The family of this 99-nucleotide sequence from Staphylococcus gallinarum is "SAM riboswitch aptamer (S box leader)". Lineage of the source: Bacteria > Bacilli > Caryophanales > Staphylococcaceae > Staphylococcus. The base pairs follow the family's consensus structure, which is taken from published work.
[Rfam]
RNA sequence: UGCUUAUCAAGAGAAGUGGAGGGACUGGCCCAGUGAUACUUCGGCAACAUGUAAAAGCGUGUGCCAAAUCCAGUAGCAACUAUUGCUAGAAGAUAAGAA
Number, nucleotide and partner (000 for none) at each position: 001u099002g000003c097004u096005u095006a094007u093008c092009a000010a000011g000012a000013g042014a041015a040016g039017u038018g000019g000020a000021g031022g030023g029024a000025c073026u072027g071028g070029c023030c022031c021032a000033g000034u000035g000036a000037u000038a017039c016040u015041u014042c013043g065044g064045c063046a062047a000048c061049a060050u000051g000052u057053a000054a000055a000056a000057g052058c000059g000060u049061g048062u046063g045064c044065c043066a000067a000068a000069u091070c028071c027072a026073g025074u088075a087076g086077c085078a084079a083080c000081u000082a000083u079084u078085g077086c076087u075088a074089g000090a000091a069092g008093a007094u006095a005096a004097g003098a000099a001